[Rfam]
RNA: Small Cajal body specific RNA 3
RNA sequence: ACUGGAAGCUGCUGUCACCAGUUGUGGGCAAAAUGAGUAUGUUUUGUCCACCGUUGCAGUCUUCCUAGAGCAAAGUGGAGGUCUCUGUCUGCUUUAGGAGAGCCAACUAAACCGGAUCGUUCCCCUCCAUACACG
Dot-bracket structure: ...(((.(((((...........((((((...((......))...))))))....)))))..)))...........(((((...(.(((.(.(((((.........))))).).))).)....))))).......
Numbered sequence: 001a002c003u004g005g006a007a008g009c010u011g012c013u014g015u016c017a018c019c020a021g022u023u024g025u026g027g028g029c030a031a032a033a034u035g036a037g038u039a040u041g042u043u044u045u046g047u048c049c050a051c052c053g054u055u056g057c058a059g060u061c062u063u064c065c066u067a068g069a070g071c072a073a074a075g076u077g078g079a080g081g082u083c084u085c086u087g088u089c090u091g092c093u094u095u096a097g098g099a100g101a102g103c104c105a106a107c108u109a110a111a112c113c114g115g116a117u118c119g120u121u122c123c124c125c126u127c128c129a130u131a132c133a134c135g
Stems, first nucleotide, its partner, number of pairs: 004065003008060005024051006033042002077128005085119001087117003091113001093111005